[Rfam]
RNA sequence: CAGCAUCACCAUUAUCUAUGGACACGGUGCUGCAGACCUUCUGGAAGGAACAUGGUUCCAGGGUCUGUCGGAAAGGUUUUCCGUGUCCAG
Numbered sequence: 001c002a003g004c005a006u007c008a009c010c011a012u013u014a015u016c017u018a019u020g021g022a023c024a025c026g027g028u029g030c031u032g033c034a035g036a037c038c039u040u041c042u043g044g045a046a047g048g049a050a051c052a053u054g055g056u057u058c059c060a061g062g063g064u065c066u067g068u069c070g071g072a073a074a075g076g077u078u079u080u081c082c083g084u085g086u087c088c089a090g
Base pairs, nucleotide, nucleotide: 001032002031003030004029005028006027007026009021010020011019012018033067034066035065036064037063038062041061042060043059044058045057046056